[Rfam]
RNA sequence: GCGCAGGUUUGGUCUAGUGGUUACUUCGUAUGGUUUCGAACAUCUCCCUGUUCUCGGGAGACAACUACGGGCGCUGUCCUGCGUUUUG
Numbered sequence: 001g002c003g004c005a006g007g008u009u010u011g012g013u014c015u016a017g018u019g020g021u022u023a024c025u026u027c028g029u030a031u032g033g034u035u036u037c038g039a040a041c042a043u044c045u046c047c048c049u050g051u052u053c054u055c056g057g058g059a060g061a062c063a064a065c066u067a068c069g070g071g072c073g074c075u076g077u078c079c080u081g082c083g084u085u086u087u088g
Stems, first nucleotide, its partner, number of pairs: 002083006012072004017068004025060003029056001
RNA: Vault RNA
Organism: Argiope bruennichi